The family of this 248-nucleotide RNA from Effusibacillus lacus is "BsrG".
Taxonomically the source falls in Effusibacillus (Bacteria, Bacillota, Bacilli, Alicyclobacillaceae).
Rfam classes the family as a small RNA.
About the family: bsrE, bsrG and bsrH pair through intermolecular interactions with antisense sRNAs. They form type I toxin/antitoxin system that includes an mRNA encoding for a short, toxic peptide (bsrE, bsrG and bsrH) and an antitoxin that is comprised of an antisense RNA. bsrG encodes a 39-amino-acid toxin, and the 180 nucleotide antisense sRNA called SR4 acts as the antitoxin (they overlap by 123 nucleotides). SR4 interaction with the 3'UTR of bsrG RNA promotes bsrG degradation and inhibits its translation. BsrG interferes with cell envelope biosynthesis, causes membrane invaginations and delocalisation of the cell wall synthesis and initiates autolysis. bsrE RNA encodes 30 amino-acid toxin peptide.
The family has 6 seed sequences and 614 matches in Rfam 15.1.
Its family is annotated with autolysis and toxin activity in the Gene Ontology.
On this family, see Saito et al., Gene 2008: "Novel small RNA-encoding genes in the intergenic regions of Bacillus subtilis".
RNA sequence: UGCAAUAGAAUAGGCUCCUCAAGGGUGGUCGGCUCAUCCCCUAAUGAAAGGGGGUGAUGCCAUGACAGUUUAUGAGGCGAUCUCACUGAUGAUUUCUUUUGGUGCACUGGUCGCGUUAAUACUGUCGGGAAAGAAAAAAAGAUAGACCGCCCUUGAGCCCACAACUCAGCGGUUCUAUCCCACAUGCUUGAGCCGGCCCCAGGAGGGGCAGCUAUUGUACAUCGGCCGUAGGUGUUCCCGCACCUGCG
Numbered sequence: 001u002g003c004a005a006u007a008g009a010a011u012a013g014g015c016u017c018c019u020c021a022a023g024g025g026u027g028g029u030c031g032g033c034u035c036a037u038c039c040c041c042u043a044a045u046g047a048a049a050g051g052g053g054g055u056g057a058u059g060c061c062a063u064g065a066c067a068g069u070u071u072a073u074g075a076g077g078c079g080a081u082c083u084c085a086c087u088g089a090u091g092a093u094u095u096c097u098u099u100u101g102g103u104g105c106a107c108u109g110g111u112c113g114c115g116u117u118a119a120u121a122c123u124g125u126c127g128g129g130a131a132a133g134a135a136a137a138a139a140a141g142a143u144a145g146a147c148c149g150c151c152c153u154u155g156a157g158c159c160c161a162c163a164a165c166u167c168a169g170c171g172g173u174u175c176u177a178u179c180c181c182a183c184a185u186g187c188u189u190g191a192g193c194c195g196g197c198c199c200c201a202g203g204a205g206g207g208g209c210a211g212c213u214a215u216u217g218u219a220c221a222u223c224g225g226c227c228g229u230a231g232g233u234g235u236u237c238c239c240g241c242a243c244c245u246g247c248g
Base pairs, nucleotide, nucleotide: 001219002218003217004216005215007213008212011210013194014193015192016191017190018157019156020155021154022153023152024151025150027147029145034057035056036055038053039052040051041050042049064126065125066124067123068122069121078091079090102117169180196209197208198207199206227248228247229246230245231244232243233242234241235240